[Rfam]
RNA sequence: GUGCGCCUGAACAGGACCUGGAAACGAGGAUCCGUGAGAAGAGGACGCCAAAGGACGGUCCGACCGCUAAAAAGACAAAAGGAAUUAAACUGAUCACCGCGGAAACCUGCCGCCUCGAAUCGAAGGUAAGUGAUGACCGAAAUGGGACAAGAAUUAAGCACAACAUCAAAUAUAUGUAGACAAAUUAAAAAGGCUUUAAAGAUACGAGGAGUAAAGGUUAAAGGUAAUGAACUUGUUUAAAUUUUUUGAUUUUGUAAAAGAUACUUGCCCUU
Numbered sequence: 001g002u003g004c005g006c007c008u009g010a011a012c013a014g015g016a017c018c019u020g021g022a023a024a025c026g027a028g029g030a031u032c033c034g035u036g037a038g039a040a041g042a043g044g045a046c047g048c049c050a051a052a053g054g055a056c057g058g059u060c061c062g063a064c065c066g067c068u069a070a071a072a073a074g075a076c077a078a079a080a081g082g083a084a085u086u087a088a089a090c091u092g093a094u095c096a097c098c099g100c101g102g103a104a105a106c107c108u109g110c111c112g113c114c115u116c117g118a119a120u121c122g123a124a125g126g127u128a129a130g131u132g133a134u135g136a137c138c139g140a141a142a143u144g145g146g147a148c149a150a151g152a153a154u155u156a157a158g159c160a161c162a163a164c165a166u167c168a169a170a171u172a173u174a175u176g177u178a179g180a181c182a183a184a185u186u187a188a189a190a191a192g193g194c195u196u197u198a199a200a201g202a203u204a205c206g207a208g209g210a211g212u213a214a215a216g217g218u219u220a221a222a223g224g225u226a227a228u229g230a231a232c233u234u235g236u237u238u239a240a241a242u243u244u245u246u247u248g249a250u251u252u253u254g255u256a257a258a259a260g261a262u263a264c265u266u267g268c269c270c271u272u
Base pairs, nucleotide, nucleotide: 006029007028008027033044035042084127085126086125093120094118095117099113100112101111102110134149135148137145138144139143155198156197157196158194159193161192205248206247207246208245209244210243211242212241215234216233217232218231219229220228257272258271260269262267

The record is a 272-nucleotide RNA from Macaca nemestrina, which matches "Mason-Pfizer monkey virus packaging signal" in Rfam.